[Rfam]
RNA: Small nucleolar RNA SNORD14
RNA sequence: AGUCUGUGAUGAUACCAAUGAAGGCUUGUUUUUCUAAACAUUCGCAAUUGCCGCCUAAGAGCUUUCGCCUUCGCCAAGCUUGAGAGCUAAUGCUGUAUAUAUCCUUCCUUGGAUCUCUGAGACC
Dot-bracket structure: .(((........................................................((((((...............)))))).................................))).